A member of the RNA family "Singlet oxygen resistance RNA X" from Tranquillimonas rosea, 80 nucleotides long. Rfam describes the family as follows. SorX (RSs2461)like SorY is a singlet oxygen induced sRNA that counteracts oxidative stress by targeting mRNA for a transporter in Rhodobacter. It also has an impact on resistance against organic hydroperoxides. It targets SD sequence of potA mRNA via an aSD sequence. The aSD sequence and some neighbouring nucleotides are identical to the one of SorY (targets takP mRNA). A reference for the family is Peng et al. (2016), "Regulation of a polyamine transporter by the conserved 3' UTR-derived sRNA SorX confers resistance to singlet oxygen and organic hydroperoxides in Rhodobacter sphaeroides", RNA Biol. Rfam links the family to the GO term response to photooxidative stress.
RNA sequence: GAACCGUGAAGACGCUGGGGCGACGCCCCUGUCUUUACCUCCCUGUUGGACUGGGCCGGACUUCGCGUCCGGCCCUUUUU
Numbered sequence: 001g002a003a004c005c006g007u008g009a010a011g012a013c014g015c016u017g018g019g020g021c022g023a024c025g026c027c028c029c030u031g032u033c034u035u036u037a038c039c040u041c042c043c044u045g046u047u048g049g050a051c052u053g054g055g056c057c058g059g060a061c062u063u064c065g066c067g068u069c070c071g072g073c074c075c076u077u078u079u080u
Base pairs, nucleotide, nucleotide: 008036009035010034011033012032013031014030054074055073056072057071058070059069060068061067